RNA sequence: AUACGUACCUGACAAGACAGAUACCAUGAUCACAAAGGUGGUACUCCCAGGGCGAGGCCUAUUCAUUGCACUCUGAAUGUGCUGAUCCCUGCAAUUUCUCCAAACGUGGGAAACUUGACUGCAUAAUUUGUGGUAGUUGGGGACUGUGUUCACACUUUCCCCUG
Dot-bracket structure: ............((.(..((..(((((..........))))).))..)((((.(.(((.(((((..........))))).)))..))))).((((((.((.......)).))).)))..)).................(((((..(((....)))..)))))..
A member of the RNA family "U1 spliceosomal RNA" from Carlito syrichta, 164 nucleotides long. A search with the family's covariance model found it, with a score of 129 bits. By type it is a spliceosomal small nuclear RNA. Pairs were carried over by alignment from the consensus structure, which is taken from published work. Lineage of the source: Eukaryota > Eumetazoa > Theria > Eutheria > Carlito. Rfam links the family to the GO terms mRNA 5'-splice site recognition, pre-mRNA 5'-splice site binding and U1 snRNP. U1 is a small nuclear RNA (snRNA) component of the spliceosome (involved in pre-mRNA splicing).